[Rfam]
RNA sequence: CAAAAGGGUGUUUGCUGCUUUAAUGGCACGUUCGCUGUAAUGGUGAGCGGGGUAUGGUUAUCAAGACAUACCCAACACGUAAUUUUUAUAGUCAGGGAGGCUGUUGGCUACCUCUAUGUACCAGCGCCUUU
Numbered sequence: 001c002a003a004a005a006g007g008g009u010g011u012u013u014g015c016u017g018c019u020u021u022a023a024u025g026g027c028a029c030g031u032u033c034g035c036u037g038u039a040a041u042g043g044u045g046a047g048c049g050g051g052g053u054a055u056g057g058u059u060a061u062c063a064a065g066a067c068a069u070a071c072c073c074a075a076c077a078c079g080u081a082a083u084u085u086u087u088a089u090a091g092u093c094a095g096g097g098a099g100g101c102u103g104u105u106g107g108c109u110a111c112c113u114c115u116a117u118g119u120a121c122c123a124g125c126g127c128c129u130u131u
Stems, first nucleotide, its partner, number of pairs: 008078005013028005029049008050073007098129004103125005109120003
U11 spliceosomal RNA: a 131-nucleotide sequence from Arctia plantaginis. It scores 88 bits against the family's covariance model. The organism belongs to Arctia, within Eukaryota.